[Rfam]
RNA: Plastid-psbM 3UTR RNA
RNA sequence: CUAGUAUGGUAGAAAGAAAUAUAUGAAUCUUUCUACCAUACUAUCUAUUAUUGUUAUUAUAAUAUAAUAUUGUAUAAAUAA
Numbered sequence: 001c002u003a004g005u006a007u008g009g010u011a012g013a014a015a016g017a018a019a020u021a022u023a024u025g026a027a028u029c030u031u032u033c034u035a036c037c038a039u040a041c042u043a044u045c046u047a048u049u050a051u052u053g054u055u056a057u058u059a060u061a062a063u064a065u066a067a068u069a070u071u072g073u074a075u076a077a078a079u080a081a
Stems, first nucleotide, its partner, number of pairs: 002043016